[Rfam]
RNA sequence: CUUUGAUCUGGGUGAGAGAAACGCGUAUCGAUGGAUUGGGUUCAGUUCUGGUCUCACACGGUUUGUUCUAACAAUUUGUACUGACUGUGUUUUGAUCGAUACGGGUCGCUCUCACCUAGGCCAGAGUUGC
Numbered sequence: 001c002u003u004u005g006a007u008c009u010g011g012g013u014g015a016g017a018g019a020a021a022c023g024c025g026u027a028u029c030g031a032u033g034g035a036u037u038g039g040g041u042u043c044a045g046u047u048c049u050g051g052u053c054u055c056a057c058a059c060g061g062u063u064u065g066u067u068c069u070a071a072c073a074a075u076u077u078g079u080a081c082u083g084a085c086u087g088u089g090u091u092u093u094g095a096u097c098g099a100u101a102c103g104g105g106u107c108g109c110u111c112u113c114a115c116c117u118a119g120g121c122c123a124g125a126g127u128u129g130c
Stems, first nucleotide, its partner, number of pairs: 001126005007120012021106002024103009034092002
Shown here is a 130-nucleotide RNA sequence from Glycine max, a member of the family "MIR4416 microRNA precursor family". Its family is annotated with RISC complex and miRNA-mediated post-transcriptional gene silencing in the Gene Ontology.